This 597-nucleotide part of an RNA from Gasterosteus aculeatus belongs to the Rfam family "Eukaryotic large subunit ribosomal RNA". The source organism's lineage runs through Eukaryota, Vertebrata, Actinopteri, Eupercaria and Gasterosteus.
[Rfam]
RNA sequence: GAAGACCCUGUUGAGCUUGACUCUAGUCUGGCACUGUGAAGAGACAUGAGAGGUGUAGAAUAAGUGGGAGACCCUCGCGGCCGCCGGUGAAAUACCACUACUCUUAUCGUUUUUCCACUUACCCGGUGAAGCGGGGAGCGGGGCCCCAAGCGGGCCCUCGGUUCUGGCGUCAAGCGGGCCGGCUCGCCCGGUCCGCGACCCGCUCCGGGGACAGUGGCAGGUGGGGAGUUUGACUGGGGCGGUACACCUGUCAAACGGUAACGCAGGUGUCCUAAGGCGAGCUCAGGGAGGACAGAAACCUCCCGUGGAGCAGAAGGGCAAAAGCUCGCUUGAUCUUGAUUUUCAGUAUGAAUACAGACCGUGAAAGCGGGGCCUCACGAUCCUUCUGGCGUUUUGGGUUUUAAGCAGGAGGUGUCAGAAAAGUUACCACAGGGAUAACUGGCUUGUGGCGGCCAAGCGUUCAUAGCGACGUCGCUUUUUGAUCCUUCGAUGUCGGCUCUUCCUAUCAUUGUGAAGCAGAAUUCACCAAGCGUUGGAUUGUUCACCCACUAAUAGGGAACGUGAGCUGGGUUUAGACCGUCGUGAGACAGGUUAGUU
Numbered sequence: 001g002a003a004g005a006c007c008c009u010g011u012u013g014a015g016c017u018u019g020a021c022u023c024u025a026g027u028c029u030g031g032c033a034c035u036g037u038g039a040a041g042a043g044a045c046a047u048g049a050g051a052g053g054u055g056u057a058g059a060a061u062a063a064g065u066g067g068g069a070g071a072c073c074c075u076c077g078c079g080g081c082c083g084c085c086g087g088u089g090a091a092a093u094a095c096c097a098c099u100a101c102u103c104u105u106a107u108c109g110u111u112u113u114u115c116c117a118c119u120u121a122c123c124c125g126g127u128g129a130a131g132c133g134g135g136g137a138g139c140g141g142g143g144c145c146c147c148a149a150g151c152g153g154g155c156c157c158u159c160g161g162u163u164c165u166g167g168c169g170u171c172a173a174g175c176g177g178g179c180c181g182g183c184u185c186g187c188c189c190g191g192u193c194c195g196c197g198a199c200c201c202g203c204u205c206c207g208g209g210g211a212c213a214g215u216g217g218c219a220g221g222u223g224g225g226g227a228g229u230u231u232g233a234c235u236g237g238g239g240c241g242g243u244a245c246a247c248c249u250g251u252c253a254a255a256c257g258g259u260a261a262c263g264c265a266g267g268u269g270u271c272c273u274a275a276g277g278c279g280a281g282c283u284c285a286g287g288g289a290g291g292a293c294a295g296a297a298a299c300c301u302c303c304c305g306u307g308g309a310g311c312a313g314a315a316g317g318g319c320a321a322a323a324g325c326u327c328g329c330u331u332g333a334u335c336u337u338g339a340u341u342u343u344c345a346g347u348a349u350g351a352a353u354a355c356a357g358a359c360c361g362u363g364a365a366a367g368c369g370g371g372g373c374c375u376c377a378c379g380a381u382c383c384u385u386c387u388g389g390c391g392u393u394u395u396g397g398g399u400u401u402u403a404a405g406c407a408g409g410a411g412g413u414g415u416c417a418g419a420a421a422a423g424u425u426a427c428c429a430c431a432g433g434g435a436u437a438a439c440u441g442g443c444u445u446g447u448g449g450c451g452g453c454c455a456a457g458c459g460u461u462c463a464u465a466g467c468g469a470c471g472u473c474g475c476u477u478u479u480u481g482a483u484c485c486u487u488c489g490a491u492g493u494c495g496g497c498u499c500u501u502c503c504u505a506u507c508a509u510u511g512u513g514a515a516g517c518a519g520a521a522u523u524c525a526c527c528a529a530g531c532g533u534u535g536g537a538u539u540g541u542u543c544a545c546c547c548a549c550u551a552a553u554a555g556g557g558a559a560c561g562u563g564a565g566c567u568g569g570g571u572u573u574a575g576a577c578c579g580u581c582g583u584g585a586g587a588c589a590g591g592u593u594a595g596u597u
Stems, first nucleotide, its partner, number of pairs: 007433004012429002014425005020229004027221004032216002036118003040114006046107007063099005070082001122209005132202004140157003144153001174196008232245001233243003246268006271372002277329006283309002286304006310319002334358003339353004360369003383411006392404002442483001444481001446480001448476006457467002494569001495567004499561001500558005507532001511526005534548003538544001575593004579588003